[Rfam]
RNA sequence: GAGCAUCCUUUAAAAACCCCCCAGUUGCCGUUUUGGCCUCUGGGACAAGAAAGGGUGCAAGAUUGACCUUAGAAUUAUCCAAAGCUAAGAGUUAUGUGAUGGUAUCUCUUAGCUAUUUCACCUCUAAGACAAAA
Numbered sequence: 001g002a003g004c005a006u007c008c009u010u011u012a013a014a015a016a017c018c019c020c021c022c023a024g025u026u027g028c029c030g031u032u033u034u035g036g037c038c039u040c041u042g043g044g045a046c047a048a049g050a051a052a053g054g055g056u057g058c059a060a061g062a063u064u065g066a067c068c069u070u071a072g073a074a075u076u077a078u079c080c081a082a083a084g085c086u087a088a089g090a091g092u093u094a095u096g097u098g099a100u101g102g103u104a105u106c107u108c109u110u111a112g113c114u115a116u117u118u119c120a121c122c123u124c125u126a127a128g129a130c131a132a133a134a
Stems, first nucleotide, its partner, number of pairs: 003058004009050003020044005027037002063133002068128006083114007091106001095102001
The record is a 134-nucleotide sequence from Oryzias latipes, which matches "Small nucleolar RNA SNORA14" in Rfam. Rfam describes the family as follows. ACA14 is a member of the H/ACA class of snoRNA that guide the sites of modification of uridines to pseudouridines. It is annotated as an H/ACA-box small nucleolar RNA. The family's consensus secondary structure was predicted with RNAfold.